[Rfam]
RNA: Small nucleolar RNA R16
RNA sequence: GAAGGCAAGUGAUGUAGUAAAUCUUAUCCUACACACUGAAAUUAUAUGUGGACUAAAACUACUCAUUUUUAUUAUCUGAUGCCUUC
Numbered sequence: 001g002a003a004g005g006c007a008a009g010u011g012a013u014g015u016a017g018u019a020a021a022u023c024u025u026a027u028c029c030u031a032c033a034c035a036c037u038g039a040a041a042u043u044a045u046a047u048g049u050g051g052a053c054u055a056a057a058a059c060u061a062c063u064c065a066u067u068u069u070u071a072u073u074a075u076c077u078g079a080u081g082c083c084u085u086c
Base pairs, nucleotide, nucleotide: 003084004083005082006081007080